The record is a 165-nucleotide RNA from Beauveria bassiana, which matches "sraL Hfq binding RNA" in Rfam. The match comes from Rfam's covariance-model search (115 bits). The organism belongs to Beauveria bassiana, within Eukaryota. Pairs were carried over by alignment from the consensus structure, which was predicted with RNAalifold. Rfam describes the family as follows. The SraL RNA ('sra' for small RNA), discovered in E. coli, and later in Salmonella Tiphimurium. It is expressed only in stationary phase. It may possibly play a role in Salmonella virulence. The major stationary phase regulator RpoS is transcriptionally regulating SraL and directly binds to the sraL gene promoter.
[Rfam]
RNA sequence: GUCGGUGCAAACCGGAACCUCCAAAGUCAGUGAAGUGUGUACGUAUGUAUGUGUAAGCGUUAUCGAGGGGUGCCGACGUCGGGGGAAACCCUCCUGUCAGAACGGGAUAGAGCGAAAGACAAAGACCGGAAAACAACUAAAGCGCCCUUGUGGCGCUUUAGUUUU
Dot-bracket structure: .(((((((.....((.....))...............................................))))))).(((.(((....)))((((((....))))))..........)))..............((((((((((((.....))))))))))))..
Numbered sequence: 001g002u003c004g005g006u007g008c009a010a011a012c013c014g015g016a017a018c019c020u021c022c023a024a025a026g027u028c029a030g031u032g033a034a035g036u037g038u039g040u041a042c043g044u045a046u047g048u049a050u051g052u053g054u055a056a057g058c059g060u061u062a063u064c065g066a067g068g069g070g071u072g073c074c075g076a077c078g079u080c081g082g083g084g085g086a087a088a089c090c091c092u093c094c095u096g097u098c099a100g101a102a103c104g105g106g107a108u109a110g111a112g113c114g115a116a117a118g119a120c121a122a123a124g125a126c127c128g129g130a131a132a133a134c135a136a137c138u139a140a141a142g143c144g145c146c147c148u149u150g151u152g153g154c155g156c157u158u159u160a161g162u163u164u165u
Stems, first nucleotide, its partner, number of pairs: 002076007014022002078120003082091003092107006135163012